[Rfam]
RNA sequence: CGGGGAAAGAAGACCCUGUUGAGCUUGACUCUAGUUUGACAUUGUGAAAAGACAUAGAGGGUGUAGAAUAAGUGGGAGCUUCGGCGCCGGUGAAAUACCACUACCUUUAUCGUUUUUUUACUUAUUCAAUUAAGCGGAGCUGGAUCGCAAGAUCCACGUUCUGGAAUUGAAAGGCGGCACUAGGCCGUUGAUCCGGGUUGAAGACAUUGUCAGGUGGGGAGUUUGGCUGGGGCGGCACAUCUGUUAAAAGAUAACGCAGAUGUCCUAAGGGGGACUCAUGGAGAACAGAAAUCUCCAGUGGAACAAAAGGGUAAAAGUCUCCUUGAUUUUGAUUUUCAGUGUGAAUACAAACCAUGAAAGUGUGGCCUAUCGAUCCUUUAGUCCCUCAGAGUUUGAGGCUAGAGGUGCCAGAAAAGUUACCACAGGGAUAACUGGCUUGUGGCAGUCAAGCGUUCAUAGCGACAUUGCUUUUUGAUUCUUCGAUGUCGGCUCUUCCUAUCAUACCGAAGCAGAAUUCGGUAAGCGUUGGAUUGUUCACCCACUAAUAGGGAACGUGAGCUGGGUUUAGACCGUCGUGAGACAGGUUAGUUUUACCCUA
Number, nucleotide and partner (000 for none) at each position: 001c000002g000003g597004g596005g595006a000007a592008a591009g000010a000011a000012g000013a000014c000015c426016c425017u424018g423019u000020u422021g421022a418023g417024c416025u415026u414027g000028a222029c221030u220031c219032u000033a000034g000035u214036u213037u212038g211039a210040c209041a208042u000043u000044g121045u120046g119047a118048a117049a116050a115051g114052a113053c112054a110055u109056a108057g107058a106059g105060g104061g000062u000063g000064u000065a000066g000067a000068a000069u000070a000071a102072g101073u100074g099075g098076g000077a000078g085079c084080u000081u000082c000083g000084g079085c078086g000087c000088c000089g000090g000091u000092g000093a000094a000095a000096u000097a000098c075099c074100a073101c072102u071103a000104c060105c059106u058107u057108u056109a055110u054111c000112g053113u052114u051115u050116u049117u048118u047119u046120a045121c044122u000123u000124a000125u202126u201127c200128a199129a198130u000131u000132a000133a000134g000135c195136g194137g193138a192139g000140c000141u000142g000143g154144a153145u152146c151147g000148c000149a000150a000151g146152a145153u144154c143155c000156a000157c000158g000159u000160u000161c000162u000163g000164g000165a000166a000167u000168u000169g000170a000171a000172a000173g189174g188175c187176g186177g185178c000179a000180c000181u000182a000183g000184g000185c177186c176187g175188u174189u173190g000191a000192u138193c137194c136195g135196g000197g000198u129199u128200g127201a126202a125203g000204a000205c000206a000207u000208u041209g040210u039211c038212a037213g036214g035215u000216g000217g000218g000219g031220a030221g029222u028223u000224u000225g238226g236227c235228u234229g000230g000231g000232g000233c000234g228235g227236c226237a000238c225239a261240u260241c259242u258243g257244u256245u000246a000247a000248a000249a000250g000251a000252u000253a000254a000255c000256g244257c243258a242259g241260a240261u239262g000263u000264c365265c364266u000267a000268a000269g000270g322271g321272g320273g319274a318275c317276u302277c301278a000279u297280g296281g295282a294283g293284a292285a000286c000287a000288g000289a000290a000291a000292u284293c283294u282295c281296c280297a279298g000299u000300g000301g277302a276303a312304c311305a000306a000307a000308a000309g000310g000311g304312u303313a000314a000315a000316a000317g275318u274319c273320u272321c271322c270323u000324u000325g000326a000327u351328u350329u349330u000331g000332a346333u345334u344335u343336u000337c000338a000339g000340u000341g000342u000343g335344a334345a333346u332347a000348c000349a329350a328351a327352c000353c362354a361355u360356g000357a000358a000359a000360g355361u354362g353363u000364g265365g264366c000367c000368u000369a000370u000371c000372g000373a000374u000375c000376c404377u403378u402379u401380a400381g399382u000383c000384c398385c397386u396387c395388a000389g000390a000391g000392u000393u000394u000395g387396a386397g385398g384399c381400u380401a379402g378403a377404g376405g000406u000407g000408c000409c000410a000411g000412a000413a000414a026415a025416g024417u023418u022419a000420c000421c021422a020423c018424a017425g016426g015427g000428a000429u000430a000431a000432c000433u000434g000435g476436c000437u474438u000439g473440u000441g469442g468443c467444a466445g465446u464447c000448a000449a000450g460451c459452g000453u000454u000455c000456a000457u000458a000459g451460c450461g000462a000463c000464a446465u445466u444467g443468c442469u441470u000471u000472u000473u439474g437475a000476u435477u000478c000479u000480u000481c000482g000483a000484u000485g000486u000487c562488g560489g559490c558491u557492c554493u551494u550495c549496c548497u547498a000499u000500c525501a000502u000503a520504c519505c518506g517507a516508a515509g000510c000511a000512g000513a000514a000515u508516u507517c506518g505519g504520u503521a000522a000523g000524c000525g500526u000527u541528g540529g539530a000531u537532u000533g000534u000535u000536c000537a531538c000539c529540c528541a527542c000543u000544a000545a000546u000547a497548g496549g495550g494551a493552a000553c000554g492555u000556g000557a491558g490559c489560u488561g000562g487563g000564u000565u000566u000567a000568g586569a585570c584571c583572g581573u580574c579575g000576u000577g000578a000579g574580a573581c572582a000583g571584g570585u569586u568587a000588g000589u000590u000591u008592u007593a000594c000595c005596c004597u003598a000

Source information:
The record is a 598-nucleotide part of an RNA from Brettanomyces bruxellensis, which matches "Eukaryotic large subunit ribosomal RNA" in Rfam. The sequence is in the family's curated seed alignment. Pairs were carried over by alignment from the consensus structure, which is taken from published work. Gene Ontology terms of the family: ribosome and structural constituent of ribosome.